[Rfam]
RNA sequence: AAUAUUAAAGGUGAUGGAGUUCACCAUAACUGCGUAAUGCUAAUGACUCCUGUAAACAA
Numbered sequence: 001a002a003u004a005u006u007a008a009a010g011g012u013g014a015u016g017g018a019g020u021u022c023a024c025c026a027u028a029a030c031u032g033c034g035u036a037a038u039g040c041u042a043a044u045g046a047c048u049c050c051u052g053u054a055a056a057c058a059a
Stems, first nucleotide, its partner, number of pairs: 010025004016050006032040002
Dot-bracket structure: .........[[[[..((((((]]]]......((.....))....)))))).........
Shown here is a 59-nucleotide sequence from Anaerosalibacter massiliensis, a member of the family "Fluoride riboswitch aptamer (crcB RNA motif)". The base pairs follow the family's consensus structure, which is taken from published work. The match comes from Rfam's covariance-model search (54 bits). NCBI's taxonomy places the organism under Bacteria, Bacillota, Tissierellia, Sporanaerobacteraceae, Anaerosalibacter.